[Rfam]
RNA sequence: UCAUCAUCACCAUCAUCCUGAUUAGUCUUCAGACGCUUGGUGCUGGAAGACGAUCAACGGAUCUUCCAGUGGCGAAUAGAAUGUUAGAGAAAGCCCUCGGAAGAAUCCUUCCGAGGGCUUUUUUAA
Numbered sequence: 001u002c003a004u005c006a007u008c009a010c011c012a013u014c015a016u017c018c019u020g021a022u023u024a025g026u027c028u029u030c031a032g033a034c035g036c037u038u039g040g041u042g043c044u045g046g047a048a049g050a051c052g053a054u055c056a057a058c059g060g061a062u063c064u065u066c067c068a069g070u071g072g073c074g075a076a077u078a079g080a081a082u083g084u085u086a087g088a089g090a091a092a093g094c095c096c097u098c099g100g101a102a103g104a105a106u107c108c109u110u111c112c113g114a115g116g117g118c119u120u121u122u123u124u125a126a
Stems, first nucleotide, its partner, number of pairs: 008042003012037001014035001018032004043069008088123016
The family of this 126-nucleotide RNA from Limnobaculum parvum is "Histidine operon leader". The source organism's lineage runs through Bacteria, Pseudomonadati, Gammaproteobacteria, Enterobacterales and Limnobaculum. The family's consensus secondary structure is taken from published work. Gene Ontology term of the family: histidine biosynthetic process. A search with the family's covariance model found it, with a score of 92 bits. At least 6 amino acid operons are known to be regulated by attenuation.